[Rfam]
RNA sequence: UUUUUUAUGAUGAAAAGAUGACGAGUAUGAAAAAAUUAAGAAUAUUUAUUAUUAUUAUUAAAUACAUGUUCUAUGUAUUUAUUAAUAUCCAAUAAAUAUAUUCUUAUUUUUUCAAACAUGAUUAUUUGAGGCAUUUGUCUGAAAAA
Numbered sequence: 001u002u003u004u005u006u007a008u009g010a011u012g013a014a015a016a017g018a019u020g021a022c023g024a025g026u027a028u029g030a031a032a033a034a035a036u037u038a039a040g041a042a043u044a045u046u047u048a049u050u051a052u053u054a055u056u057a058u059u060a061a062a063u064a065c066a067u068g069u070u071c072u073a074u075g076u077a078u079u080u081a082u083u084a085a086u087a088u089c090c091a092a093u094a095a096a097u098a099u100a101u102u103c104u105u106a107u108u109u110u111u112u113c114a115a116a117c118a119u120g121a122u123u124a125u126u127u128g129a130g131g132c133a134u135u136u137g138u139c140u141g142a143a144a145a146a
Base pairs, nucleotide, nucleotide: 017135018134019133020132031111032110033109034108035107036106038105039104040080041079042078
Rfam assigns this 146-nucleotide RNA from Plasmodium relictum to the family "small nucleolar RNA snoR21". For this family Rfam cites "Structural RNAs of known and unknown function identified in malaria parasites by comparative genomics and RNA analysis" (Chakrabarti et al., RNA, 2007). The organism belongs to Haemamoeba, within Eukaryota. The pairing is the family consensus, mapped onto this sequence. Rfam classes the family as a C/D-box small nucleolar RNA. A search with the family's covariance model found it, with a score of 126 bits.